[Rfam]
RNA sequence: GGGCUGGCUUUAGCUCAGCGGUUACUUCGACAAUGCUUUCUGUGGUUGAAAACAGUCACUCUGUGUGGUUUGAGACCCGUGGGCGCUCUCCGGCCCUUUU
Dot-bracket structure: .((((((.....((((.((((....(((((.......................................)))))..)))))))).....)))))).....
Rfam assigns this 100-nucleotide sequence from Cebus imitator to the family "Vault RNA". Lineage of the source: Eukaryota > Metazoa > Eutheria > Primates > Cebus. It scores 80 bits against the family's covariance model. Rfam 15.1 lists 2,873 matches to the family in 431 species. The base pairs follow the family's consensus structure, which is taken from published work.